A member of the RNA family "Plastid-clpP 5UTR RNA" from Ziziphus jujuba, 69 nucleotides long. It is annotated as a cis-regulatory element.
RNA sequence: AUUUUUUUUUGUAGGAACAAAAGGAAGUAGAUCUAUUCUACACCCGAUAAGUACCAAUACGUAAUGGCA
Numbered sequence: 001a002u003u004u005u006u007u008u009u010u011g012u013a014g015g016a017a018c019a020a021a022a023g024g025a026a027g028u029a030g031a032u033c034u035a036u037u038c039u040a041c042a043c044c045c046g047a048u049a050a051g052u053a054c055c056a057a058u059a060c061g062u063a064a065u066g067g068c069a
Stems, first nucleotide, its partner, number of pairs: 003022002006019001008017003044067002051060003
Record summary
Rfam's curators write: Plastid clpP is a non-coding RNA (ncRNA) recognised in plastids. It was found in the prime untranslated region (5UTR) of a protease complex subunit (clpP) in plastids, suggesting a posible cis-regulatory function. The family's consensus secondary structure was predicted with LocARNA.